[Rfam]
RNA sequence: UCCACUGGUAGAGGCGCGCCUGUCAUCAGUAGCCUUGCUUGACGCCGGGGCGGCGUGGGGCGAAAGGGGCCGGCGCCGAAGGAUGUGCGAAUGCCCCGUUCGCGCAUAGCUGGGCCGUAGCAGAACAUGCUGCGGACUGUCGCGAAUGCGGAGAGCUGCCAUGGCU
Numbered sequence: 001u002c003c004a005c006u007g008g009u010a011g012a013g014g015c016g017c018g019c020c021u022g023u024c025a026u027c028a029g030u031a032g033c034c035u036u037g038c039u040u041g042a043c044g045c046c047g048g049g050g051c052g053g054c055g056u057g058g059g060g061c062g063a064a065a066g067g068g069g070c071c072g073g074c075g076c077c078g079a080a081g082g083a084u085g086u087g088c089g090a091a092u093g094c095c096c097c098g099u100u101c102g103c104g105c106a107u108a109g110c111u112g113g114g115c116c117g118u119a120g121c122a123g124a125a126c127a128u129g130c131u132g133c134g135g136a137c138u139g140u141c142g143c144g145a146a147u148g149c150g151g152a153g154a155g156c157u158g159c160c161a162u163g164g165c166u
Stems, first nucleotide, its partner, number of pairs: 006161006016076005022070003032061007080111002083107009112138002115135008140151004
RNA: Lysine riboswitch aptamer
Organism: Slackia equolifaciens